[Rfam]
RNA sequence: AACGGGGCAAUCCGAGGUGCACGUGGCUUGCGCCCGCUCGCGGGGCUCGGUGCCGUGGUGCGACCUUCUGGUAGCACCGGAGAGCC
Numbered sequence: 001a002a003c004g005g006g007g008c009a010a011u012c013c014g015a016g017g018u019g020c021a022c023g024u025g026g027c028u029u030g031c032g033c034c035c036g037c038u039c040g041c042g043g044g045g046c047u048c049g050g051u052g053c054c055g056u057g058g059u060g061c062g063a064c065c066u067u068c069u070g071g072u073a074g075c076a077c078c079g080g081a082g083a084g085c086c
Stems, first nucleotide, its partner, number of pairs: 003079003007075002015066003
Overview
Trypanosomatid snoRNA TB9Cs1H2: an 86-nucleotide RNA from Leishmania braziliensis. The family's RNA type in Rfam is H/ACA-box small nucleolar RNA. On this family, see Liang et al., RNA 2005: "A genome-wide analysis of C/D and H/ACA-like small nucleolar RNAs in Trypanosoma brucei reveals a trypanosome-specific pattern of rRNA modification". Rfam's curators put it in the seed alignment. Rfam links the family to the GO terms RNA processing and nucleolus.